[Rfam]
Shown here is a 78-nucleotide RNA from Ardeotis kori, a member of the family "Small nucleolar RNA SNORD69". Rfam classes the family as a C/D-box small nucleolar RNA. Rfam's curators write: snoRNA HBII-210 belongs to the C/D family of snoRNAs. NCBI's taxonomy places the organism under Eukaryota, Opisthokonta, Craniata, Neoaves, Ardeotis. The base pairs follow the family's consensus structure.
RNA sequence: UACGCAAAGCAUAUGAUGAGAAAGCACUGAAACUGACUCUGUGUGAGGUGCAUUCAAUCCAAUACUGAGCUUUGUGUC
Numbered sequence: 001u002a003c004g005c006a007a008a009g010c011a012u013a014u015g016a017u018g019a020g021a022a023a024g025c026a027c028u029g030a031a032a033c034u035g036a037c038u039c040u041g042u043g044u045g046a047g048g049u050g051c052a053u054u055c056a057a058u059c060c061a062a063u064a065c066u067g068a069g070c071u072u073u074g075u076g077u078c
Base pairs, nucleotide, nucleotide: 002077003076004075005074006073007072008071009070010069